[Rfam]
RNA sequence: GUGCACUGUCAUUCAUUGUACAGGUUGUACACAACCUGCCACAGUGACAAGAAGGUGCUAGAGAAAUAUGGGGACUUCCAAAGCACUUGGGUAUUAAUAUUCCCUAGUGUCAUUUCACACCCCAAAUAU
Numbered sequence: 001g002u003g004c005a006c007u008g009u010c011a012u013u014c015a016u017u018g019u020a021c022a023g024g025u026u027g028u029a030c031a032c033a034a035c036c037u038g039c040c041a042c043a044g045u046g047a048c049a050a051g052a053a054g055g056u057g058c059u060a061g062a063g064a065a066a067u068a069u070g071g072g073g074a075c076u077u078c079c080a081a082a083g084c085a086c087u088u089g090g091g092u093a094u095u096a097a098u099a100u101u102c103c104c105u106a107g108u109g110u111c112a113u114u115u116c117a118c119a120c121c122c123c124a125a126a127u128a129u
Stems, first nucleotide, its partner, number of pairs: 003058004009050001013047006023040003064129001067126001069124005083110005090103002094099001
Overview: This 129-nucleotide RNA sequence from Holothuria leucospilota belongs to the Rfam family "Small nucleolar RNA SNORA14". A search with the family's covariance model found it, with a score of 37 bits. The family's RNA type in Rfam is H/ACA-box small nucleolar RNA.